[Rfam]
RNA: Small nucleolar RNA Z105
RNA sequence: UUGGCAUGAUGAGGAAGACAAAUUGAUGUCCGAUCUAUUUGACGAUAAAAUCCUCCUACUCAUUCUGA
Numbered sequence: 001u002u003g004g005c006a007u008g009a010u011g012a013g014g015a016a017g018a019c020a021a022a023u024u025g026a027u028g029u030c031c032g033a034u035c036u037a038u039u040u041g042a043c044g045a046u047a048a049a050a051u052c053c054u055c056c057u058a059c060u061c062a063u064u065c066u067g068a
Stems, first nucleotide, its partner, number of pairs: 006063004030041001